Rfam assigns this 78-nucleotide RNA sequence from Hafnia alvei to the family "CyaR/Rye RNA".
RNA sequence: UGGCAAAAAGAUAUAACGAAAAAGCAAUACUAGGAACCACCUCCUUGCCAGCCCAAUCUCCCUUGGGCUGGUUUUCUU
Numbered sequence: 001u002g003g004c005a006a007a008a009a010g011a012u013a014u015a016a017c018g019a020a021a022a023a024g025c026a027a028u029a030c031u032a033g034g035a036a037c038c039a040c041c042u043c044c045u046u047g048c049c050a051g052c053c054c055a056a057u058c059u060c061c062c063u064u065g066g067g068c069u070g071g072u073u074u075u076c077u078u
Stems, first nucleotide, its partner, number of pairs: 032045004047073001048071009
The family's RNA type in Rfam is small RNA.
About the family: This sRNA was originally identified in a large scale screen of E. coli. It was shown to bind Hfq and called RyeE. This sRNA has since been characterised as a post-transcriptional regulator of the 18 kDa OmpX porin in Salmonella. Phylogenetic and mutational analyses suggest that a conserved RNA hairpin of this sRNA which features a C-rich apical loop, acts to sequester the Shine-Dalgarno sequence of ompX mRNA and inhibits translational initiation. The expression of this sRNA has been shown to be tightly controlled by the cyclic AMP receptor protein, CRP and has been renamed CyaR (cyclic AMP-activated RNA).
The literature on the family includes a 2001 paper in Genes Dev by Wassarman et al., "Identification of novel small RNAs using comparative genomics and microarrays".
A search with the family's covariance model found it, with a score of 66 bits.